[Rfam]
RNA: Bacterial large subunit ribosomal RNA, nucleotides 1152 to 1628
Organism: Azospirillum lipoferum
RNA sequence: AUUCAGAGGACGGAUGACAGAGGACGGAGGACAGAAAGGCAGUGGAUCGGAACGUGCUGUAGGCUCGUUCGACGAUCUCGUGGUGUUCCAGCGCGCUUAUGCGGUGUCGUUGGAUGUCCACCGCGCCAGUCUGUCCUUCCCACGGAUCGAACAGUUCGGCUUGGCGGAUCAAAUCCGCCGUGCCAGCAAGUCGAUCUGUGCCAAUGUCGCCGAAGGAUACGGAAAGCACACCCAGUCUCCAGCCGAGUUCAAGCGGUUCCUAGGGAUCGCCAUGGGUUCGGCGGAUGAAAUGCAGGUGUGGCUGCGUUAUUGCCGUGAUCUCGAUUACAUCAGUGUCGAGACAUGGCAAAGGUGGCAGGACGAAUGCAAGACGAUAGCUCGCAUGCUGAACUCCCUGCAUCGCAACUGGCGAUGAGAGGGUUUCCAGCGAUGAAACUAUCCGUCCUCUGUCUUCUGUCAUCCGUCUUCUGAGUGGUA
Numbered sequence: 001a002u003u004c005a006g007a008g009g010a011c012g013g014a015u016g017a018c019a020g021a022g023g024a025c026g027g028a029g030g031a032c033a034g035a036a037a038g039g040c041a042g043u044g045g046a047u048c049g050g051a052a053c054g055u056g057c058u059g060u061a062g063g064c065u066c067g068u069u070c071g072a073c074g075a076u077c078u079c080g081u082g083g084u085g086u087u088c089c090a091g092c093g094c095g096c097u098u099a100u101g102c103g104g105u106g107u108c109g110u111u112g113g114a115u116g117u118c119c120a121c122c123g124c125g126c127c128a129g130u131c132u133g134u135c136c137u138u139c140c141c142a143c144g145g146a147u148c149g150a151a152c153a154g155u156u157c158g159g160c161u162u163g164g165c166g167g168a169u170c171a172a173a174u175c176c177g178c179c180g181u182g183c184c185a186g187c188a189a190g191u192c193g194a195u196c197u198g199u200g201c202c203a204a205u206g207u208c209g210c211c212g213a214a215g216g217a218u219a220c221g222g223a224a225a226g227c228a229c230a231c232c233c234a235g236u237c238u239c240c241a242g243c244c245g246a247g248u249u250c251a252a253g254c255g256g257u258u259c260c261u262a263g264g265g266a267u268c269g270c271c272a273u274g275g276g277u278u279c280g281g282c283g284g285a286u287g288a289a290a291u292g293c294a295g296g297u298g299u300g301g302c303u304g305c306g307u308u309a310u311u312g313c314c315g316u317g318a319u320c321u322c323g324a325u326u327a328c329a330u331c332a333g334u335g336u337c338g339a340g341a342c343a344u345g346g347c348a349a350a351g352g353u354g355g356c357a358g359g360a361c362g363a364a365u366g367c368a369a370g371a372c373g374a375u376a377g378c379u380c381g382c383a384u385g386c387u388g389a390a391c392u393c394c395c396u397g398c399a400u401c402g403c404a405a406c407u408g409g410c411g412a413u414g415a416g417a418g419g420g421u422u423u424c425c426a427g428c429g430a431u432g433a434a435a436c437u438a439u440c441c442g443u444c445c446u447c448u449g450u451c452u453u454c455u456g457u458c459a460u461c462c463g464u465c466u467u468c469u470g471a472g473u474g475g476u477a
Base pairs, nucleotide, nucleotide: 001473002472003471004470005469006468007467008466009465010464011463012462013461014460015459016458017457018456019455020454021453022452023451024450025449026448027447028446029445030444031443032442